[Rfam]
RNA sequence: CACCGAGUCCGAGGCUUCGGGACUGGCCGGAGCCUGGUGAUGCACAAGGGA
Numbered sequence: 001c002a003c004c005g006a007g008u009c010c011g012a013g014g015c016u017u018c019g020g021g022a023c024u025g026g027c028c029g030g031a032g033c034c035u036g037g038u039g040a041u042g043c044a045c046a047a048g049g050g051a
Stems, first nucleotide, its partner, number of pairs: 013034008
raiA-hairpin RNA: a 51-nucleotide sequence from Streptomyces phyllanthi. The base pairs follow the family's consensus structure, which is taken from published work. The match comes from Rfam's covariance-model search (54 bits). Taxonomically the source falls in Streptomyces (Bacteria, Actinomycetota, Kitasatosporales, Streptomycetaceae).